RNA: Small nucleolar RNA Z43
Organism: Physcomitrium patens
RNA sequence: GGACUAUGACGAUUCAAAGAAAGGUCUCGUUCAACGUAUUGGCUGACAAGCCUUGCCGACCAUUCUAAAAAGAUCACCACCCAUAAUCUGAUGUCC
Numbered sequence: 001g002g003a004c005u006a007u008g009a010c011g012a013u014u015c016a017a018a019g020a021a022a023g024g025u026c027u028c029g030u031u032c033a034a035c036g037u038a039u040u041g042g043c044u045g046a047c048a049a050g051c052c053u054u055g056c057c058g059a060c061c062a063u064u065c066u067a068a069a070a071a072g073a074u075c076a077c078c079a080c081c082c083a084u085a086a087u088c089u090g091a092u093g094u095c096c
Base pairs, nucleotide, nucleotide: 001096002095003094004093045054046053